[Rfam]
RNA: Plastid-atpF group II-D1 intron
RNA sequence: GCAAAAUUGAUCUAUAUAGAACACUCAUAUGGAUAAAAUUAUUUGAACCGUUU
Numbered sequence: 001g002c003a004a005a006a007u008u009g010a011u012c013u014a015u016a017u018a019g020a021a022c023a024c025u026c027a028u029a030u031g032g033a034u035a036a037a038a039u040u041a042u043u044u045g046a047a048c049c050g051u052u053u
Stems, first nucleotide, its partner, number of pairs: 011033007